[Rfam]
RNA sequence: AUUUGUCUUAUUUGUAAGUCGUUUUGGAUAAAAGCGUCUGCUAAAUGACUAUAU
Number, nucleotide and partner (000 for none) at each position: 001a000002u000003u000004u000005g000006u000007c000008u000009u000010a000011u000012u000013u043014g041015u040016a039017a000018g000019u000020c036021g035022u034023u033024u032025u031026g000027g000028a000029u000030a000031a025032a024033a023034g022035c021036g020037u000038c000039u016040g015041c014042u000043a013044a000045a000046u000047g000048a000049c000050u000051a000052u000053a000054u000
The record is a 54-nucleotide sequence from Triplophysa tibetana, which matches "UnaL2 LINE 3' element" in Rfam. The source organism's lineage runs through Eukaryota, Eumetazoa, Actinopterygii, Otomorpha and Triplophysa. The match comes from Rfam's covariance-model search (59 bits). The literature on the family includes a 2004 paper in RNA by Baba et al., "Solution structure of an RNA stem-loop derived from the 3' conserved region of eel LINE UnaL2". Gene Ontology term of the family: transposition, RNA-mediated.